[Rfam]
RNA sequence: GUUUACAGAGAGUUUUGUUGGUUUGCUCUCAGCUUCUGCCAGUCUGUGCUGUGCAAAUCCAUGCAAAGCUCUCUGUUGCU
Dot-bracket structure: ..(.((((((((((((((.(((((((.(..(((..............)))).))))).))..)))))))))))))).)..
Numbered sequence: 001g002u003u004u005a006c007a008g009a010g011a012g013u014u015u016u017g018u019u020g021g022u023u024u025g026c027u028c029u030c031a032g033c034u035u036c037u038g039c040c041a042g043u044c045u046g047u048g049c050u051g052u053g054c055a056a057a058u059c060c061a062u063g064c065a066a067a068g069c070u071c072u073c074u075g076u077u078g079c080u
Stems, first nucleotide, its partner, number of pairs: 003078001005076014020060002022057005028051001031050003